[Rfam]
RNA sequence: AUUCCUUUUGUCGUGUAUCCCCGAUUAAUGCAGCCUCAUAUACUUGA
Numbered sequence: 001a002u003u004c005c006u007u008u009u010g011u012c013g014u015g016u017a018u019c020c021c022c023g024a025u026u027a028a029u030g031c032a033g034c035c036u037c038a039u040a041u042a043c044u045u046g047a
Stems, first nucleotide, its partner, number of pairs: 010025004032044002
The family of this 47-nucleotide sequence from Corymbia citriodora is "Plastid-ycf3 group II-D1 intron". The literature on the family includes a 2023 paper in Plant Commun by Richter et al., "Retrograde signaling in plants: A critical review focusing on the GUN pathway and beyond". The match comes from Rfam's covariance-model search (63 bits). The organism belongs to Corymbia citriodora, within Eukaryota. Plastid rpl16 is a non-coding RNA (ncRNA) recognised in plastids. It was recognised in and intronic region of a ribosome rpl16 gene.